[Rfam]
RNA sequence: UAUAUUUUAUGAGAGUAUGAUUCUAAACCCUUCACGGCAGGGAUUUUGCUUGAUUUUUGAUUUA
Number, nucleotide and partner (000 for none) at each position: 001u064002a063003u000004a061005u060006u000007u000008u000009a000010u000011g000012a000013g000014a050015g049016u048017a047018u000019g045020a044021u043022u042023c041024u000025a000026a000027a000028c000029c037030c036031u000032u000033c000034a000035c000036g030037g029038c000039a000040g000041g023042g022043a021044u020045u019046u000047u017048g016049c015050u014051u000052g000053a000054u000055u000056u000057u000058u000059g000060a005061u004062u000063u002064a001
The family of this 64-nucleotide sequence from Mytilus edulis is "Selenocysteine insertion sequence 1". The base pairs follow the family's consensus structure, which is taken from published work. Rfam links the family to the GO term selenocysteine incorporation. The incorporation of selenocysteine into a protein sequence is directed by an in-frame UGA codon (usually a stop codon) within the coding region of the mRNA. Selenoprotein mRNAs contain a conserved secondary structure in the 3' UTR that is required for the distinction of UGA stop from UGA selenocysteine. Rfam 15.1 lists 3,793 matches to the family in 721 species. By type it is a cis-regulatory element.